[Rfam]
RNA sequence: CCGCAGUCCUUAAAACCCCCCGUGAGCUGCUGUAGCUUCUGGGACAAGAAGGAAUGCAAGAGAAAGCCAAGAACUUUCCAAAGCUACAUGUCUUCUUCGCAGUGACUAUUAGCUAUUUCACCUCUUGGACAUUG
Numbered sequence: 001c002c003g004c005a006g007u008c009c010u011u012a013a014a015a016c017c018c019c020c021c022g023u024g025a026g027c028u029g030c031u032g033u034a035g036c037u038u039c040u041g042g043g044a045c046a047a048g049a050a051g052g053a054a055u056g057c058a059a060g061a062g063a064a065a066g067c068c069a070a071g072a073a074c075u076u077u078c079c080a081a082a083g084c085u086a087c088a089u090g091u092c093u094u095c096u097u098c099g100c101a102g103u104g105a106c107u108a109u110u111a112g113c114u115a116u117u118u119c120a121c122c123u124c125u126u127g128g129a130c131a132u133u134g
Stems, first nucleotide, its partner, number of pairs: 003057003010049002019043004025037003062133002067128006082114005090106002095102001
RNA: Small nucleolar RNA SNORA14
Organism: Cyprinus carpio